[Rfam]
RNA sequence: AUUUUAUCAAGAAAGACUGAGGGACUGGCCCUAUGAAGUCUGGCAACCUGAAUUAUAUAUCAUUAGUAUAGUUUAAGGUGCUAAAUCCUGCAGAUAUUUUUAUCUGAGAGAUAAGAU
Numbered sequence: 001a002u003u004u005u006a007u008c009a010a011g012a013a014a015g016a017c018u019g020a021g022g023g024a025c026u027g028g029c030c031c032u033a034u035g036a037a038g039u040c041u042g043g044c045a046a047c048c049u050g051a052a053u054u055a056u057a058u059a060u061c062a063u064u065a066g067u068a069u070a071g072u073u074u075a076a077g078g079u080g081c082u083a084a085a086u087c088c089u090g091c092a093g094a095u096a097u098u099u100u101u102a103u104c105u106g107a108g109a110g111a112u113a114a115g116a117u
Base pairs, nucleotide, nucleotide: 001117002116003115004114005113006112007111008110013041015040016039017038021031022030023029025090027088028087042082043081044080045079047078048077050074051073052072053071054070055069056068057067058066086109091106092105093104094103095102096101
Dot-bracket structure: ((((((((....(.(((...(((.[.[[)))......))))((((.((.(((((((((.......)))))))))..))))))...(]].]((((((....))))))..)))))))))
Source information:
Rfam assigns this 117-nucleotide RNA sequence from Clostridium neonatale to the family "SAM riboswitch aptamer (S box leader)". Lineage of the source: Bacteria > Bacillati > Bacillota > Clostridiaceae > Clostridium.